[Rfam]
RNA sequence: CGCGAACGGCUGGGGUGCCCGUCCCCGCGGGGCGGGCUGAGACACUACCCAUCGAACCUGAUCUGGGUCAUGCCAGCGAAGGGAGCCGACCGUCGAGGACC
Numbered sequence: 001c002g003c004g005a006a007c008g009g010c011u012g013g014g015g016u017g018c019c020c021g022u023c024c025c026c027g028c029g030g031g032g033c034g035g036g037c038u039g040a041g042a043c044a045c046u047a048c049c050c051a052u053c054g055a056a057c058c059u060g061a062u063c064u065g066g067g068u069c070a071u072g073c074c075a076g077c078g079a080a081g082g083g084a085g086c087c088g089a090c091c092g093u094c095g096a097g098g099a100c101c
Stems, first nucleotide, its partner, number of pairs: 007088004011051004017037008057082003063076004
TPP riboswitch aptamer (THI element): a 101-nucleotide sequence from Azospirillum sp. TSO22-1.
A reference for the family is Welz and Breaker (2007), "Ligand binding and gene control characteristics of tandem riboswitches in Bacillus anthracis", RNA.
The match comes from Rfam's covariance-model search (66 bits).